[Rfam]
Shown here is an 83-nucleotide RNA sequence from Eptesicus fuscus, a member of the family "mir-493 microRNA precursor family".
Nucleotides: 083
Base pairs, nucleotide, nucleotide: 004078005077006076007075008074009073010072011071013069014068015067016066017065018064019063020062021061022060023059024058025057026056027055028054029053030052031051032050
Number, partner (000 for none) and nucleotide at each position: 001000c002000u003000c004078u005077a006076g007075g008074g009073c010072c011071u012000u013069g014068u015067a016066c017065a018064u019063g020062g021061u022060a023059g024058g025057c026056u027055u028054u029053c030052a031051u032050u033000c034000a035000u036000u037000c038000g039000u040000u041000u042000g043000c044000a045000c046000a047000u048000u049000c050032g051031g052030u053029g054028a055027a056026g057025g058024u059023c060022u061021a062020c063019u064018g065017u066016g067015u068014g069013c070000c071011a072010g073009g074008c075007c076006c077005u078004g079000u080000g081000c082000c083000a

Lineage of the source: Eukaryota > Chordata > Sarcopterygii > Mammalia > Eptesicus. The sequence is in the family's curated seed alignment.